[Rfam]
RNA sequence: GUUCCCUGUGAUGUCUCAUAUCUGACCAUGCUAAUUCUGAAUAUUAUUUGAUUGAGAUUUAUUCUUAUCAGUUUUCUGAGGGAACC
Numbered sequence: 001g002u003u004c005c006c007u008g009u010g011a012u013g014u015c016u017c018a019u020a021u022c023u024g025a026c027c028a029u030g031c032u033a034a035u036u037c038u039g040a041a042u043a044u045u046a047u048u049u050g051a052u053u054g055a056g057a058u059u060u061a062u063u064c065u066u067a068u069c070a071g072u073u074u075u076c077u078g079a080g081g082g083a084a085c086c
Stems, first nucleotide, its partner, number of pairs: 001085007

Small nucleolar RNA snoR53Y: an 86-nucleotide sequence from Daucus carota. A search with the family's covariance model found it, with a score of 66 bits. Its Rfam clan is "snoR53 clan". By type it is a C/D-box small nucleolar RNA. The organism belongs to Daucus carota, within Eukaryota.